The record is a 92-nucleotide RNA sequence from Rattus norvegicus, which matches "Small nucleolar RNA SNORD53/SNORD92" in Rfam.
The family's RNA type in Rfam is C/D-box small nucleolar RNA.
RNA sequence: UGGUGCUGUGAUGACGUCUUAAAACUGUGGUUCUGACUCACUCACUGAGAGGAGUGUGAGGACCUACAAUUCCUUGGCUGUGUCUGAGCACC
Number, nucleotide and partner (000 for none) at each position: 001u000002g000003g091004u090005g089006c088007u000008g000009u000010g000011a000012u000013g000014a000015c000016g000017u000018c000019u000020u000021a000022a000023a000024a000025c000026u000027g000028u000029g000030g000031u000032u000033c000034u000035g000036a000037c000038u000039c000040a000041c000042u000043c000044a000045c000046u000047g000048a000049g000050a000051g000052g000053a000054g000055u000056g000057u000058g000059a000060g000061g000062a000063c000064c000065u000066a000067c000068a000069a000070u000071u000072c000073c000074u000075u000076g000077g000078c000079u000080g000081u000082g000083u000084c000085u000086g000087a000088g006089c005090a004091c003092c000

Description: Gene Ontology terms of the family: RNA processing and nucleolus. The family is grouped with related families in Rfam's "SNORD52 clan". The sequence is in the family's curated seed alignment.